This 133-nucleotide RNA from Nesidiocoris tenuis belongs to the Rfam family "U11 spliceosomal RNA". It scores 89 bits against the family's covariance model. For this family Rfam cites "Evolution of spliceosomal snRNA genes in metazoan animals" (Marz et al., J Mol Evol, 2008). The organism belongs to Nesidiocoris, within Eukaryota. The family's RNA type in Rfam is spliceosomal small nuclear RNA.

[Rfam]
RNA sequence: UAAAAGGGUGUUUGCCACUUGAAUGGCAUGCGUGCCCAAUUUUGGGCGCGUAGGGUAUGGCCAUCAAGACAUACUCAACACAAAAUUUUUAUGACUGCGGGGCUGCUAUCUGUCAAUAAGCAAUGGCGCCUCC
Number, nucleotide and partner (000 for none) at each position: 001u000002a000003a000004a000005a000006g000007g000008g081009u080010g079011u078012u077013u028014g027015c026016c025017a024018c000019u000020u000021g000022a000023a000024u017025g016026g015027c014028a013029u052030g051031c050032g049033u048034g047035c046036c045037c044038a043039a000040u000041u000042u000043u038044g037045g036046g035047c034048g033049c032050g031051u030052a029053g076054g075055g074056u073057a072058u071059g070060g000061c000062c000063a000064u000065c000066a000067a000068g000069a000070c059071a058072u057073a056074c055075u054076c053077a012078a011079c010080a009081c008082a000083a000084a000085a000086u000087u000088u000089u000090u000091a000092u000093g000094a000095c000096u000097g000098c000099g000100g131101g130102g129103c128104u000105g127106c126107u125108a124109u123110c000111u122112g121113u120114c000115a000116a000117u000118a000119a000120g113121c112122a111123a109124u108125g107126g106127c105128g103129c102130c101131u100132c000133c000